RNA sequence: UCGCAUACCAGUCCUUAUCAUUCUUCGCCUUGUGUGCAAUUUAAACAACUGGACGGAGAACUGAUAAGGGCUGGUAUGUCG
Numbered sequence: 001u002c003g004c005a006u007a008c009c010a011g012u013c014c015u016u017a018u019c020a021u022u023c024u025u026c027g028c029c030u031u032g033u034g035u036g037c038a039a040u041u042u043a044a045a046c047a048a049c050u051g052g053a054c055g056g057a058g059a060a061c062u063g064a065u066a067a068g069g070g071c072u073g074g075u076a077u078g079u080c081g
Stems, first nucleotide, its partner, number of pairs: 012070009021060006029052002
The record is an 81-nucleotide RNA sequence from Aphis craccivora, which matches "mir-184 microRNA precursor family" in Rfam. It scores 66 bits against the family's covariance model. Rfam links the family to the GO terms RISC complex and gene silencing by miRNA. On this family, see Chen et al., Genes Dev 2005: "The developmental miRNA profiles of zebrafish as determined by small RNA cloning".